Rfam assigns this 136-nucleotide sequence from Apaloderma vittatum to the family "Small nucleolar RNA SNORA58". Rfam 15.1 lists 471 matches to the family in 320 species. The family's RNA type in Rfam is H/ACA-box small nucleolar RNA. Lineage of the source: Eukaryota > Opisthokonta > Vertebrata > Dinosauria > Apaloderma. Rfam describes the family as follows. ACA52 is a member of the H/ACA class of snoRNA that guide the sites of modification of uridines to pseudouridines. Its family is annotated with RNA processing and nucleolus in the Gene Ontology. A reference for the family is Huttenhofer et al. (2001), "RNomics: an experimental approach that identifies 201 candidates for novel, small, non-messenger RNAs in mouse", EMBO J. It scores 75 bits against the family's covariance model.
RNA sequence: CUGCACACCAGUAGACCUUAUCUGGUUCUUCCCAGUAGCCAGACGAGGGGGACGGUGCAUGCUACAAAAAGCCGGGGUUGCCGUAGGCUGUGAUCAGCCUCGACGUGGCUGAUUGAACUGCAAUACCCCGACAUAU
Numbered sequence: 001c002u003g004c005a006c007a008c009c010a011g012u013a014g015a016c017c018u019u020a021u022c023u024g025g026u027u028c029u030u031c032c033c034a035g036u037a038g039c040c041a042g043a044c045g046a047g048g049g050g051g052a053c054g055g056u057g058c059a060u061g062c063u064a065c066a067a068a069a070a071g072c073c074g075g076g077g078u079u080g081c082c083g084u085a086g087g088c089u090g091u092g093a094u095c096a097g098c099c100u101c102g103a104c105g106u107g108g109c110u111g112a113u114u115g116a117a118c119u120g121c122a123a124u125a126c127c128c129c130g131a132c133a134u135a136u
Stems, first nucleotide, its partner, number of pairs: 003062003008057001016048004021043004074129004079125001083121002094112005